[Rfam]
RNA sequence: GACAAUAAACGAUGGAUGGAAUAAGUGUAGCGGACCCGGGGGCAGUACCCGGCGCCUCCACCAAUACCAAAGCGGCCUUUAAAAGGUUUGGCUUUCCAUGGGGGCGAAACAGGCUCGACGCGCACGGUAAAGAUUCAUUUUUUGUUCGGCAUUGUACCGCCGUUAUCGGGCUAAAUCGAUAAGUGCCAAUGAUAACUCUGAGGUGCUCGCUGUCGCUGCGUAA
Numbered sequence: 001g002a003c004a005a006u007a008a009a010c011g012a013u014g015g016a017u018g019g020a021a022u023a024a025g026u027g028u029a030g031c032g033g034a035c036c037c038g039g040g041g042g043c044a045g046u047a048c049c050c051g052g053c054g055c056c057u058c059c060a061c062c063a064a065u066a067c068c069a070a071a072g073c074g075g076c077c078u079u080u081a082a083a084a085g086g087u088u089u090g091g092c093u094u095u096c097c098a099u100g101g102g103g104g105c106g107a108a109a110c111a112g113g114c115u116c117g118a119c120g121c122g123c124a125c126g127g128u129a130a131a132g133a134u135u136c137a138u139u140u141u142u143u144g145u146u147c148g149g150c151a152u153u154g155u156a157c158c159g160c161c162g163u164u165a166u167c168g169g170g171c172u173a174a175a176u177c178g179a180u181a182a183g184u185g186c187c188a189a190u191g192a193u194a195a196c197u198c199u200g201a202g203g204u205g206c207u208c209g210c211u212g213u214c215g216c217u218g219c220g221u222a223a
Base pairs, nucleotide, nucleotide: 001146002145003144004143005142014136015135016134017133026124027123028122030121031120032119036052037051038050039049040048053106054105055104056103057102058101059100147162148161149160150159